JUMPstart RNA: a 37-nucleotide sequence from Candidatus Erwinia dacicola. It is annotated as a cis-regulatory element.
[Rfam]
RNA sequence: CAGCCAACUGGUAGCUAUAGCCAGGGGCGGUAGCGUG
Numbered sequence: 001c002a003g004c005c006a007a008c009u010g011g012u013a014g015c016u017a018u019a020g021c022c023a024g025g026g027g028c029g030g031u032a033g034c035g036u037g
Base pairs, nucleotide, nucleotide: 008024009023010022011021012020